[Rfam]
RNA: Actinobacteria sRNA Ms_IGR-5
Organism: Actinokineospora auranticolor
Nucleotides: 260
Stems, first nucleotide, its partner, number of pairs: 014058006059159004064155002067153004072148001177254012191211005
Number, partner (000 for none) and nucleotide at each position: 001000a002000c003000a004000c005000g006000a007000g008000a009000g010000a011000g012000g013000a014058g015057g016056u017055g018054g019053u020000c021000c022000a023000a024000c025000g026000g027000u028000g029000u030000a031000u032000u033000c034000c035000c036000a037000u038000a039000g040000g041000a042000c043000u044000c045000g046000u047000g048000a049000g050000g051000u052000g053019g054018c055017u056016g057015u058014c059159c060158g061157c062156u063000a064155g065154g066000a067153c068152c069151a070150c071000c072148c073000c074000a075000u076000c077000c078000g079000u080000c081000a082000a083000a084000c085000g086000a087000u088000g089000g090000c091000a092000g093000c094000c095000g096000g097000c098000c099000u100000g101000a102000c103000g104000c105000a106000c107000a108000c109000g110000g111000c112000u113000g114000a115000c116000a117000c118000c119000g120000g121000g122000c123000c124000a125000a126000c127000c128000c129000g130000g131000u132000g133000c134000c135000g136000u137000a138000g139000g140000g141000c142000g143000c144000g145000g146000g147000c148072g149000c150070g151069u152068g153067g154065u155064c156062g157061g158060c159059g160000a161000a162000u163000a164000c165000c166000a167000g168000g169000c170000a171000g172000u173000c174000a175000c176000c177254c178253a179252g180251c181250c182249c183248u184247c185246g186245g187244g188243c189000a190000u191211c192210c193209g194208g195207g196000a197000c198000c199000c200000a201000g202000u203000c204000c205000g206000c207195c208194c209193c210192g211191g212000a213000c214000c215000c216000g217000u218000c219000c220000g221000c222000c223000g224000c225000c226000u227000u228000g229000u230000c231000g232000g233000a234000c235000g236000g237000g238000a239000g240000c241000g242000c243188g244187c245186c246185c247184g248183g249182g250181g251180g252179c253178u254177g255000u256000c257000c258000u259000a260000u